[Rfam]
RNA sequence: GGUGGCAUUGGGAAUGUCCAUCACAACCUGCCAACAUUCCAGGUUAUGUUGACGGGUCGUGAUGGGCACUCUCAGCGUCUCA
Number, nucleotide and partner (000 for none) at each position: 001g000002g000003u000004g079005g078006c077007a000008u075009u074010g073011g072012g071013a070014a000015u068016g067017u066018c065019c064020a063021u000022c061023a060024c059025a000026a057027c056028c055029u054030g053031c000032c051033a050034a049035c048036a047037u046038u000039c000040c000041a000042g000043g000044u000045u000046a037047u036048g035049u034050u033051g032052a000053c030054g029055g028056g027057u026058c000059g024060u023061g022062a000063u020064g019065g018066g017067c016068a015069c000070u013071c012072u011073c010074a009075g008076c000077g006078u005079c004080u000081c000082a000
RNA: MIR1033 microRNA precursor family